[Rfam]
RNA sequence: UAAGGCCUAUGAUGGAAUAUUAUAACAUGCCUACAUUGUCUGAUCAUUUUAACUUGAUUGAGCAAAUGUUGACUGAGGCCUUA
Numbered sequence: 001u002a003a004g005g006c007c008u009a010u011g012a013u014g015g016a017a018u019a020u021u022a023u024a025a026c027a028u029g030c031c032u033a034c035a036u037u038g039u040c041u042g043a044u045c046a047u048u049u050u051a052a053c054u055u056g057a058u059u060g061a062g063c064a065a066a067u068g069u070u071g072a073c074u075g076a077g078g079c080c081u082u083a
Stems, first nucleotide, its partner, number of pairs: 001083002004080004